[Rfam]
RNA: mir-571 microRNA precursor family
Organism: Pan troglodytes
RNA sequence: AGUGGGACUAAGUUCAGUGGGCCAGUUUCUGGUCUGUAGCCAAGAACAGAGGUCCUGUAGUUUGCCACCUGAAUGAAAGCCUGCC
Numbered sequence: 001a002g003u004g005g006g007a008c009u010a011a012g013u014u015c016a017g018u019g020g021g022c023c024a025g026u027u028u029c030u031g032g033u034c035u036g037u038a039g040c041c042a043a044g045a046a047c048a049g050a051g052g053u054c055c056u057g058u059a060g061u062u063u064g065c066c067a068c069c070u071g072a073a074u075g076a077a078a079g080c081c082u083g084c085c
Base pairs, nucleotide, nucleotide: 002084003083004082006080009077012074013073014072015071016070017069018067019066021065022064024062026060027059032053033052034051035050037048